This 73-nucleotide RNA from Ophiophagus hannah belongs to the Rfam family "mir-1905 microRNA precursor family".
Its family is annotated with RISC complex and miRNA-mediated post-transcriptional gene silencing in the Gene Ontology.
Pairs were carried over by alignment from the consensus structure, which was predicted with RNAalifold.
NCBI's taxonomy places the organism under Eukaryota, Opisthokonta, Eumetazoa, Craniata, Ophiophagus.
[Rfam]
RNA sequence: GUGUCUGUUGCUGGAUGCGCUUGAUGGUCGCUCCCUUUGGGCCCACCACUAGCCCGACCACACGGUAAGGAAC
Numbered sequence: 001g002u003g004u005c006u007g008u009u010g011c012u013g014g015a016u017g018c019g020c021u022u023g024a025u026g027g028u029c030g031c032u033c034c035c036u037u038u039g040g041g042c043c044c045a046c047c048a049c050u051a052g053c054c055c056g057a058c059c060a061c062a063c064g065g066u067a068a069g070g071a072a073c
Base pairs, nucleotide, nucleotide: 004069006067007066008065009064010063012060013059014058017055019053020052021051023049025048026047027046028045030043032041033040034039